[Rfam]
RNA sequence: UGGACCAAUUAUGACUACUGGUGUGAGUCACGCAUAAUGAACACCACGUGUCUGGAACUCUGAGGUCCAA
Numbered sequence: 001u002g003g004a005c006c007a008a009u010u011a012u013g014a015c016u017a018c019u020g021g022u023g024u025g026a027g028u029c030a031c032g033c034a035u036a037a038u039g040a041a042c043a044c045c046a047c048g049u050g051u052c053u054g055g056a057a058c059u060c061u062g063a064g065g066u067c068c069a070a
Stems, first nucleotide, its partner, number of pairs: 002068005

A member of the RNA family "Small nucleolar RNA SNORD113/SNORD114 family", 70 nucleotides long. Its family is annotated with RNA processing and nucleolus in the Gene Ontology. On this family, see Cavaille et al., Hum Mol Genet 2002: "Identification of tandemly-repeated C/D snoRNA genes at the imprinted human 14q32 domain reminiscent of those at the Prader-Willi/Angelman syndrome region". The family is grouped with related families in Rfam's "SNORD74 clan".